Rfam assigns this 94-nucleotide RNA from Gossypium raimondii to the family "MIR8675 microRNA precursor family". A search with the family's covariance model found it, with a score of 91 bits. The base pairs follow the family's consensus structure, which was predicted with RNAalifold. Rfam 15.1 lists 111 matches to the family in 18 species. Lineage of the source: Eukaryota > Mesangiospermae > Pentapetalae > rosids > Gossypium.
[Rfam]
RNA sequence: UGUGGCACUAUGAGAUUGUGACACAUCAUCACUUGAAAAUUAAAAAUUUAUAUAAAUUUCCAAGUAAUGAUGUGAUACAAUCUUAUAGUGUCAC
Numbered sequence: 001u002g003u004g005g006c007a008c009u010a011u012g013a014g015a016u017u018g019u020g021a022c023a024c025a026u027c028a029u030c031a032c033u034u035g036a037a038a039a040u041u042a043a044a045a046a047u048u049u050a051u052a053u054a055a056a057u058u059u060c061c062a063a064g065u066a067a068u069g070a071u072g073u074g075a076u077a078c079a080a081u082c083u084u085a086u087a088g089u090g091u092c093a094c
Stems, first nucleotide, its partner, number of pairs: 003093007012084009022074008031065005037059005